[Rfam]
RNA: R1162-like plasmid antisense RNA
Organism: Pasteurella multocida
RNA sequence: CGGCGCAUGGCGGGGAUGCCCCGCCAGCGCCUGACCAUCAACCGCCUGCAAAGGAGGCAAACCAAUGGCUAC
Numbered sequence: 001c002g003g004c005g006c007a008u009g010g011c012g013g014g015g016a017u018g019c020c021c022c023g024c025c026a027g028c029g030c031c032u033g034a035c036c037a038u039c040a041a042c043c044g045c046c047u048g049c050a051a052a053g054g055a056g057g058c059a060a061a062c063c064a065a066u067g068g069c070u071a072c
Stems, first nucleotide, its partner, number of pairs: 002031005009025007035068003044058004049053001